[Rfam]
RNA sequence: UUUUAGCCUUGAUAGCAGCGAUAUCCUUUAUGCUUGGGGUUCAAGCAUAAAGAUAUAGCGAAUAGCAAGACAGAAU
Numbered sequence: 001u002u003u004u005a006g007c008c009u010u011g012a013u014a015g016c017a018g019c020g021a022u023a024u025c026c027u028u029u030a031u032g033c034u035u036g037g038g039g040u041u042c043a044a045g046c047a048u049a050a051a052g053a054u055a056u057a058g059c060g061a062a063u064a065g066c067a068a069g070a071c072a073g074a075a076u
Stems, first nucleotide, its partner, number of pairs: 009068003013064002018059002023054003029049008
RNA: Flavo-1 RNA
Organism: Flavobacterium micromati